The record is a 241-nucleotide sequence from Glaciimonas sp., which matches "Proteobacterial sRNA psRNA2" in Rfam. Taxonomically the source falls in Glaciimonas (Bacteria, Pseudomonadati, Burkholderiales, Oxalobacteraceae). The family has 7 seed sequences and 122 matches in Rfam 15.1. The base pairs follow the family's consensus structure. On this family, see Gvakharia et al., FEMS Microbiol Lett 2010: "Computational prediction and transcriptional analysis of sRNAs in Nitrosomonas europaea".

RNA sequence: GGGUUACUCUUUGGCGCUUACGCGCUGGUUUAAUAAAGAUCCGCACCUUGUUAUCAAACCGGGUGGCCCUGCCAUUUGGCAAGGCUUUACUGUCAGAUCAAGUCUGAACUAAUGCAAUUUUAUGCAAGCUAACUACAACAUCAAAAUUAGCCUUGAAAAAAUCGGGAUGAACGUAGAUUUUUACAUUCUUUCGAUUGGAAUUGUGAUUUAAUUUAUCAUCGUAACCACGUAAAAAAAGCUA
Numbered sequence: 001g002g003g004u005u006a007c008u009c010u011u012u013g014g015c016g017c018u019u020a021c022g023c024g025c026u027g028g029u030u031u032a033a034u035a036a037a038g039a040u041c042c043g044c045a046c047c048u049u050g051u052u053a054u055c056a057a058a059c060c061g062g063g064u065g066g067c068c069c070u071g072c073c074a075u076u077u078g079g080c081a082a083g084g085c086u087u088u089a090c091u092g093u094c095a096g097a098u099c100a101a102g103u104c105u106g107a108a109c110u111a112a113u114g115c116a117a118u119u120u121u122a123u124g125c126a127a128g129c130u131a132a133c134u135a136c137a138a139c140a141u142c143a144a145a146a147u148u149a150g151c152c153u154u155g156a157a158a159a160a161a162u163c164g165g166g167a168u169g170a171a172c173g174u175a176g177a178u179u180u181u182u183a184c185a186u187u188c189u190u191u192c193g194a195u196u197g198g199a200a201u202u203g204u205g206a207u208u209u210a211a212u213u214u215a216u217c218a219u220c221g222u223a224a225c226c227a228c229g230u231a232a233a234a235a236a237a238g239c240u241a
Stems, first nucleotide, its partner, number of pairs: 001069007009062002014025004027060005033054003037048002071239002077194001079192001083188002087185001092109002094106005111182002114179001116178001212233002219231001220229002